[Rfam]
RNA sequence: GGUCUGUGAUGAAUAGUAAAAGGUCUGAUUAUUAUAAGACUUGCACUUCCAUGACCUUUCCUCCCAGCACUUCUCACCGGUCACAGCACAGUAAUGGUGUGGCUGGCAGAGUGUUUCCUGACAGCUUGUGAUGUGGUCAGUUCAUGUUAACCUGAAGCAUCAGAGACAUGACUGGGAUCAGCAUCUAACAGUCUUACUUGAAGGAGUUUGGGGUCUUGGAUUGUUGUAACUGGACACGUGAUCUGACUUUUCUGCUGAGAUC
Numbered sequence: 001g002g003u004c005u006g007u008g009a010u011g012a013a014u015a016g017u018a019a020a021a022g023g024u025c026u027g028a029u030u031a032u033u034a035u036a037a038g039a040c041u042u043g044c045a046c047u048u049c050c051a052u053g054a055c056c057u058u059u060c061c062u063c064c065c066a067g068c069a070c071u072u073c074u075c076a077c078c079g080g081u082c083a084c085a086g087c088a089c090a091g092u093a094a095u096g097g098u099g100u101g102g103c104u105g106g107c108a109g110a111g112u113g114u115u116u117c118c119u120g121a122c123a124g125c126u127u128g129u130g131a132u133g134u135g136g137u138c139a140g141u142u143c144a145u146g147u148u149a150a151c152c153u154g155a156a157g158c159a160u161c162a163g164a165g166a167c168a169u170g171a172c173u174g175g176g177a178u179c180a181g182c183a184u185c186u187a188a189c190a191g192u193c194u195u196a197c198u199u200g201a202a203g204g205a206g207u208u209u210g211g212g213g214u215c216u217u218g219g220a221u222u223g224u225u226g227u228a229a230c231u232g233g234a235c236a237c238g239u240g241a242u243c244u245g246a247c248u249u250u251u252c253u254g255c256u257g258a259g260a261u262c
Stems, first nucleotide, its partner, number of pairs: 001262004037244003041240001048220004053215002061206004065120003069114002077106009128186001130185005143170006